Fluoride riboswitch aptamer (crcB RNA motif): a 79-nucleotide sequence from bacterium HR26. The match comes from Rfam's covariance-model search (39 bits).

RNA sequence: GCACCGACGGGCGAUGAGGCUCGCCUGGCGGCGAGUCGGCCGCCGAACCGCCAUCCUGGCUGAUAGCCUCUACGCGUGA
Numbered sequence: 001g002c003a004c005c006g007a008c009g010g011g012c013g014a015u016g017a018g019g020c021u022c023g024c025c026u027g028g029c030g031g032c033g034a035g036u037c038g039g040c041c042g043c044c045g046a047a048c049c050g051c052c053a054u055c056c057u058g059g060c061u062g063a064u065a066g067c068c069u070c071u072a073c074g075c076g077u078g079a
Stems, first nucleotide, its partner, number of pairs: 010025004016070006050060003